[Rfam]
RNA sequence: GCUCAUUCUAAUCUCAGCUGGCAAUCUGUGAUUGGCUGAAAAUCACAGAUGCAGAUGGGAUUCUGAUGAGU
Numbered sequence: 001g002c003u004c005a006u007u008c009u010a011a012u013c014u015c016a017g018c019u020g021g022c023a024a025u026c027u028g029u030g031a032u033u034g035g036c037u038g039a040a041a042a043u044c045a046c047a048g049a050u051g052c053a054g055a056u057g058g059g060a061u062u063c064u065g066a067u068g069a070g071u
Stems, first nucleotide, its partner, number of pairs: 003069005010062007021052002027047006

The family of this 71-nucleotide RNA from Ciona savignyi is "mir-216 microRNA precursor family". On this family, see Shao et al., Gene 2008: "Identification of novel chicken microRNAs and analysis of their genomic organization". Rfam 15.1 lists 1,667 matches to the family in 655 species. The sequence is in the family's curated seed alignment. Pairs were carried over by alignment from the consensus structure, which was predicted with WAR. Taxonomically the source falls in Ciona (Eukaryota, Opisthokonta, Metazoa, Cionidae). Its Rfam clan is "mir-216 clan".